[Rfam]
RNA sequence: UCCGAUAACGGCAAACUUACUGAAAAGUAAGGACGCAAAGCUACGGGUCUAAGGUAUAAACUAUGAUCGCCGGGCCGCCGAAG
Numbered sequence: 001u002c003c004g005a006u007a008a009c010g011g012c013a014a015a016c017u018u019a020c021u022g023a024a025a026a027g028u029a030a031g032g033a034c035g036c037a038a039a040g041c042u043a044c045g046g047g048u049c050u051a052a053g054g055u056a057u058a059a060a061c062u063a064u065g066a067u068c069g070c071c072g073g074g075c076c077g078c079c080g081a082a083g
Stems, first nucleotide, its partner, number of pairs: 001083001003080002011036002016031006034069001040075003044072003047067003
The family of this 83-nucleotide sequence from Filobacillus milosensis is "c-di-GMP-I-GGC riboswitch aptamer". A search with the family's covariance model found it, with a score of 70 bits. NCBI's taxonomy places the organism under Bacteria, Bacillati, Bacilli, Bacillaceae, Filobacillus.